[Rfam]
RNA sequence: UCCCUCCGGAUCCCUUUCCCAUCAGAUCUGGAUACCGAUCUUGUGGUCGAAAAAGGAGGAAAAACAAAAUUCAAACUGGUCUCGGCCUCUUUGCUGGUGCGGUCCUGCUUGGAGAGAG
Numbered sequence: 001u002c003c004c005u006c007c008g009g010a011u012c013c014c015u016u017u018c019c020c021a022u023c024a025g026a027u028c029u030g031g032a033u034a035c036c037g038a039u040c041u042u043g044u045g046g047u048c049g050a051a052a053a054a055g056g057a058g059g060a061a062a063a064a065c066a067a068a069a070u071u072c073a074a075a076c077u078g079g080u081c082u083c084g085g086c087c088u089c090u091u092u093g094c095u096g097g098u099g100c101g102g103u104c105c106u107g108c109u110u111g112g113a114g115a116g117a118g
Stems, first nucleotide, its partner, number of pairs: 003059005019046003023043001025040004076107001078105002081102002
The family of this 118-nucleotide RNA sequence from Rhinoptilus africanus is "Small nucleolar RNA SNORA61".
From the family's description: ACA61 is a member of the H/ACA class of snoRNA that guide the sites of modification of uridines to pseudouridines.